[Rfam]
RNA sequence: AAAAAGGGUCAGUUGGCUAAUAUAUGCCAUGCAUGGUUUAGGCCGUGCACUGUAUGGACAUCACAACAUAUGGCUGGCAAAAUUUCUCAAAAGUGGUUGAGUCCAGGGUUGCGAGGCUGAACGUACGG
Numbered sequence: 001a002a003a004a005a006g007g008g009u010c011a012g013u014u015g016g017c018u019a020a021u022a023u024a025u026g027c028c029a030u031g032c033a034u035g036g037u038u039u040a041g042g043c044c045g046u047g048c049a050c051u052g053u054a055u056g057g058a059c060a061u062c063a064c065a066a067c068a069u070a071u072g073g074c075u076g077g078c079a080a081a082a083u084u085u086c087u088c089a090a091a092a093g094u095g096g097u098u099g100a101g102u103c104c105a106g107g108g109u110u111g112c113g114a115g116g117c118u119g120a121a122c123g124u125a126c127g128g
Stems, first nucleotide, its partner, number of pairs: 008078005014029004030049008050073007096126002101122002104119002107117001109115002